[Rfam]
RNA sequence: UCCAUCGUGAGGUGGAAUCUGAAGGAAGCUGGCGGCAAACUUCUGGUCUGACGAACAGGAACUACAUCAGGCAUAUGUAUGCUGGGUGAGAUUGCAUAACAAAUCAAAGCCCUAAACUAUCCGGAAGCAUACGGUGUAAAUGUGGCAGAUAUAUGGAAGGAAAGAUUGCGUU
Numbered sequence: 001u002c003c004a005u006c007g008u009g010a011g012g013u014g015g016a017a018u019c020u021g022a023a024g025g026a027a028g029c030u031g032g033c034g035g036c037a038a039a040c041u042u043c044u045g046g047u048c049u050g051a052c053g054a055a056c057a058g059g060a061a062c063u064a065c066a067u068c069a070g071g072c073a074u075a076u077g078u079a080u081g082c083u084g085g086g087u088g089a090g091a092u093u094g095c096a097u098a099a100c101a102a103a104u105c106a107a108a109g110c111c112c113u114a115a116a117c118u119a120u121c122c123g124g125a126a127g128c129a130u131a132c133g134g135u136g137u138a139a140a141u142g143u144g145g146c147a148g149a150u151a152u153a154u155g156g157a158a159g160g161a162a163a164g165a166u167u168g169c170g171u172u
Stems, first nucleotide, its partner, number of pairs: 001016006028172001030170002036164001040159006046150005062145005071137003076133007084112004090105004

Overview:
Shown here is a 172-nucleotide sequence from Heliomicrobium modesticaldum, a member of the family "Group II catalytic intron D1-D4-3". The organism belongs to Heliomicrobium modesticaldum, within Bacteria. The pairing is the family consensus, mapped onto this sequence.